[Rfam]
RNA sequence: GGAUUGCAGUGUUUUGCUAUCUCUGACCAAUAAUGCAAUGAUAUAUGGAAAAAUUAUUCCACAUGUCAUUGCACUAUUGGCCGAAGAUAGCAAAAAGUGUUAUCC
Numbered sequence: 001g002g003a004u005u006g007c008a009g010u011g012u013u014u015u016g017c018u019a020u021c022u023c024u025g026a027c028c029a030a031u032a033a034u035g036c037a038a039u040g041a042u043a044u045a046u047g048g049a050a051a052a053a054u055u056a057u058u059c060c061a062c063a064u065g066u067c068a069u070u071g072c073a074c075u076a077u078u079g080g081c082c083g084a085a086g087a088u089a090g091c092a093a094a095a096a097g098u099g100u101u102a103u104c105c
Stems, first nucleotide, its partner, number of pairs: 002104003012095009022085001024083002027080006034073011046061005
RNA: MIR6274 microRNA precursor family
Organism: Prunus armeniaca